Shown here is a 373-nucleotide RNA sequence from Haloplasma contractile, a member of the family "Bacterial RNase P class B". It scores 305 bits against the family's covariance model. Ribonuclease P (RNase P) is a ubiquitous endoribonuclease, found in archaea, bacteria and eukarya as well as chloroplasts and mitochondria.
[Rfam]
RNA sequence: GUAUUCAGGUGAUCGCGCCAUUUCGAUGGUGAGGAAAGUCCAUGCUCGCACAGACUGAGAUGUCUGUAGUGUUCGUGCCUGACGAAACAAUAAGUCAGGGUAGCAUUUCUAUGCUAACGGCUGUGUUUCUACCUAAACCUUUAUGGCAUGGUAUAAACACUUUAAAAGUGCCACAGUGACGAUGCCUAGUAGAAAUACUAGGACUGGAACGGGUAAACCCCACGAGCGAGAAACCCAAAUGUUGGUAGGGGAACUUUUAACUCGGGAAUUAAACUGAGUAGAAGGCAGUAAUUUACUGUAGAUAAAUGAUUACCACCGGAGUACGAGGAGGCAUCCGUUUGCAGUACUAAGGAACAGAACAUGGCUUAUCGAA
Number, nucleotide and partner (000 for none) at each position: 001g000002u000003a000004u373005u372006c371007a369008g314009g313010u312011g311012a310013u309014c308015g000016c031017g030018c029019c028020a027021u026022u000023u000024c000025g000026a021027u020028g019029g018030u017031g016032a000033g000034g000035a000036a367037a366038g365039u000040c364041c363042a362043u361044g360045c230046u229047c228048g227049c226050a067051c066052a065053g064054a063055c062056u000057g000058a000059g000060a000061u000062g055063u054064c053065u052066g051067u050068a000069g000070u000071g000072u000073u225074c224075g223076u222077g221078c099079c098080u097081g096082a095083c094084g000085a000086a000087a000088c000089a000090a000091u000092a000093a000094g083095u082096c081097a080098g079099g078100g118101u116102a115103g114104c113105a112106u111107u000108u000109c000110u000111a106112u105113g104114c103115u102116a101117a000118c100119g220120g219121c000122u000123g160124u159125g158126u000127u000128u000129c000130u153131a152132c151133c150134u000135a000136a000137a000138c146139c145140u000141u000142u000143a000144u000145g139146g138147c000148a000149u000150g133151g132152u131153a130154u000155a000156a000157a000158c125159a124160c123161u000162u000163u000164a000165a000166a000167a000168g218169u217170g214171c213172c212173a000174c000175a000176g000177u000178g000179a000180c000181g000182a000183u000184g000185c202186c201187u200188a199189g198190u197191a196192g000193a000194a000195a000196u191197a190198c189199u188200a187201g186202g185203a000204c000205u000206g000207g000208a000209a000210c000211g000212g172213g171214u170215a000216a000217a169218c168219c120220c119221c077222a076223c075224g074225a073226g049227c048228g047229a046230g045231a000232a000233a000234c250235c249236c248237a000238a000239a000240u000241g000242u000243u000244g000245g000246u000247a000248g236249g235250g234251g000252a000253a000254c284255u283256u282257u281258u280259a279260a000261c000262u000263c000264g000265g000266g000267a000268a000269u000270u000271a000272a000273a000274c000275u000276g000277a000278g000279u259280a258281g257282a256283a255284g254285g299286c298287a297288g296289u295290a294291a000292u000293u000294u290295a289296c288297u287298g286299u285300a000301g000302a000303u000304a000305a000306a000307u000308g014309a013310u012311u011312a010313c009314c008315a000316c352317c351318g000319g000320a348321g347322u346323a345324c344325g000326a000327g000328g000329a000330g000331g000332c000333a000334u000335c000336c000337g000338u000339u000340u000341g000342c000343a000344g324345u323346a322347c321348u320349a000350a000351g317352g316353a000354a000355c000356a000357g000358a000359a000360c044361a043362u042363g041364g040365c038366u037367u036368a000369u007370c000371g006372a005373a004